[Rfam]
Nucleotides: 033
Stems, first nucleotide, its partner, number of pairs: 001024005008018003
Number, partner (000 for none) and nucleotide at each position: 001024c002023u003022a004021u005020g006000g007000u008018u009017a010016u011000a012000a013000u014000u015000u016010a017009u018008a019000c020005c021004a022003u023002g024001g025000c026000g027000g028000a029000a030000g031000g032000a033000g

The family of this 33-nucleotide RNA sequence is "L31-Firmicutes ribosomal protein leader". The base pairs follow the family's consensus structure, which is taken from published work. For this family Rfam cites "Discovery of 20 novel ribosomal leader candidates in bacteria and archaea" (Eckert and Weinberg, BMC Microbiol, 2020).